[Rfam]
RNA sequence: GUAGGCUCGGGGACAUGUGUCCUAUUACUAUGGAGGUAAAAUGGUGGCACCUUGUGCGCCAUCGCAGGUGUGCUGCACAUUGCUUUGCCUGUUCCCGUCAUUGUUUCAAAU
Numbered sequence: 001g002u003a004g005g006c007u008c009g010g011g012g013a014c015a016u017g018u019g020u021c022c023u024a025u026u027a028c029u030a031u032g033g034a035g036g037u038a039a040a041a042u043g044g045u046g047g048c049a050c051c052u053u054g055u056g057c058g059c060c061a062u063c064g065c066a067g068g069u070g071u072g073c074u075g076c077a078c079a080u081u082g083c084u085u086u087g088c089c090u091g092u093u094c095c096c097g098u099c100a101u102u103g104u105u106u107c108a109a110a111u
Stems, first nucleotide, its partner, number of pairs: 001111002005107001008103003012099003017094001019092002035074004046060003
RNA: Potassium channel RNA editing signal